[Rfam]
RNA sequence: GGCAGCGUGGCCGAGUGGUCUAAGGCGUUGGUUUUAGGCACCAAUCAGAAAUGGCGCGGGUUCGAAUCCCGCCGCUGUCA
Numbered sequence: 001g002g003c004a005g006c007g008u009g010g011c012c013g014a015g016u017g018g019u020c021u022a023a024g025g026c027g028u029u030g031g032u033u034u035u036a037g038g039c040a041c042c043a044a045u046c047a048g049a050a051a052u053g054g055c056g057c058g059g060g061u062u063c064g065a066a067u068c069c070c071g072c073c074g075c076u077g078u079c080a
Stems, first nucleotide, its partner, number of pairs: 001079007010026003028044005056072005
RNA: tRNA